Shown here is a 69-nucleotide sequence from Streptomyces sp. MnatMP-M17, a member of the family "ASpks TB sRNA". The base pairs follow the family's consensus structure, which is taken from published work.
RNA sequence: CUUCAACGAGCCCAGCAGCAGCGGCUGUUCGCGCUUCUGACCGUAGGUGGCGAGCAGGGCCUGAGCCUC
Numbered sequence: 001c002u003u004c005a006a007c008g009a010g011c012c013c014a015g016c017a018g019c020a021g022c023g024g025c026u027g028u029u030c031g032c033g034c035u036u037c038u039g040a041c042c043g044u045a046g047g048u049g050g051c052g053a054g055c056a057g058g059g060c061c062u063g064a065g066c067c068u069c
Stems, first nucleotide, its partner, number of pairs: 014026003028065003032059001037054002041050003